[Rfam]
RNA sequence: AUAAAUUUUUCUAGAAAGUAUCUGUUCUUAUCAGUUUAAUAUCUGAUAUGUCCCUUAUCUAGGGAUGAUAUAUUAAAUUGAUUUUUGGAAUAGGGAGAUGGAAUAGGAGCUUGCUUCAUCCACUCCACGCAUCAACCUGGUAUUGCAGUAUUUCCAGGAAUGGUGCUACCCCU
Numbered sequence: 001a002u003a004a005a006u007u008u009u010u011c012u013a014g015a016a017a018g019u020a021u022c023u024g025u026u027c028u029u030a031u032c033a034g035u036u037u038a039a040u041a042u043c044u045g046a047u048a049u050g051u052c053c054c055u056u057a058u059c060u061a062g063g064g065a066u067g068a069u070a071u072a073u074u075a076a077a078u079u080g081a082u083u084u085u086u087g088g089a090a091u092a093g094g095g096a097g098a099u100g101g102a103a104u105a106g107g108a109g110c111u112u113g114c115u116u117c118a119u120c121c122a123c124u125c126c127a128c129g130c131a132u133c134a135a136c137c138u139g140g141u142a143u144u145g146c147a148g149u150a151u152u153u154c155c156a157g158g159a160a161u162g163g164u165g166c167u168a169c170c171c172c173u
Stems, first nucleotide, its partner, number of pairs: 001010001003008001029048006050066006094126004100120002106117004129166006136158005